[Rfam]
RNA sequence: AAGAGACCUCCCGUAGAUCAAAAGCAGCAGCAAACGCAGAGUGUAAAAAAGCGGGAUGACGUGUGAAGGUCAUCCCGC
Numbered sequence: 001a002a003g004a005g006a007c008c009u010c011c012c013g014u015a016g017a018u019c020a021a022a023a024g025c026a027g028c029a030g031c032a033a034a035c036g037c038a039g040a041g042u043g044u045a046a047a048a049a050a051g052c053g054g055g056a057u058g059a060c061g062u063g064u065g066a067a068g069g070u071c072a073u074c075c076c077g078c
Base pairs, nucleotide, nucleotide: 005042008039009038024031025030051078052077053076054075057072058071059070060069
Annotation
Rfam assigns this 78-nucleotide sequence from Azomonas macrocytogenes to the family "Pseudomonas sRNA P31". Rfam classes the family as a small RNA. A search with the family's covariance model found it, with a score of 54 bits.